[Rfam]
The family of this 162-nucleotide RNA sequence from Litorilituus lipolyticus is "Bacterial antisense RNA HPnc0260". The family's consensus secondary structure was predicted with CMfinder. On this family, see Sharma et al., Nature 2010: "The primary transcriptome of the major human pathogen Helicobacter pylori".
RNA sequence: CAAAGAAAACUUUCUAUUACAGUGGAGAGAUUGAAAAUGCAAUUGUUAGUAAUACUAUGAAUUAUAUGGAAUAAUUUUGAUAAAUAGUGCUUAACUAUGUGAGUGUAACAGAAAUAGUGAGAGUGGUACGUCCGAGUGAAUUUGAAUCACCGACCUCUACCA
Numbered sequence: 001c002a003a004a005g006a007a008a009a010c011u012u013u014c015u016a017u018u019a020c021a022g023u024g025g026a027g028a029g030a031u032u033g034a035a036a037a038u039g040c041a042a043u044u045g046u047u048a049g050u051a052a053u054a055c056u057a058u059g060a061a062u063u064a065u066a067u068g069g070a071a072u073a074a075u076u077u078u079g080a081u082a083a084a085u086a087g088u089g090c091u092u093a094a095c096u097a098u099g100u101g102a103g104u105g106u107a108a109c110a111g112a113a114a115u116a117g118u119g120a121g122a123g124u125g126g127u128a129c130g131u132c133c134g135a136g137u138g139a140a141u142u143u144g145a146a147u148c149a150c151c152g153a154c155c156u157c158u159a160c161c162a
Base pairs, nucleotide, nucleotide: 026047030043031042032041033040067082068081124159125158126157133152134151136150137149138148139147
A search with the family's covariance model found it, with a score of 60 bits. Lineage of the source: Bacteria > Pseudomonadota > Gammaproteobacteria > Alteromonadales > Litorilituus.